RNA sequence: UGGAAGUGAUGAAAUAGAGAUAAUUGGAUGUCUCUUUGAAUGGAAUGUGUGUGAUAAAUGGAAUUUAAACCAAGUUAAAUUGGGGGUGGGGUAUGGGGAAUGUGUGUGUGUGUGCGCGCAUAUGUGUAGAAAAGGCUUUAAAUGGGGGCACUGAUAAUGCAGUGCUGAUUCCGGAGUGCAUCUGAGGCAUGUUGUUAAGUUCUGGGGUGCCGCUUUACAACAUUGCCAAUGAUUAAAGCCCAAAAUAAGCCCACCACGAAAAGCCUAGGCAUCCUAAAUCUCUAACAGGUUCAUUAAUGAAAGUGAUCCUGUGAUCUGAUCUGA
Dot-bracket structure: ((((.........................................................................................................................................................................................((((((.(.((.(....).).)...).)))))).................................................................................................)))).
The family of this 324-nucleotide RNA from Cochlearius cochlearius is "Small Cajal body-specific RNA 7". Pairs were carried over by alignment from the consensus structure. Lineage of the source: Eukaryota > Sarcopterygii > Coelurosauria > Ardeidae > Cochlearius.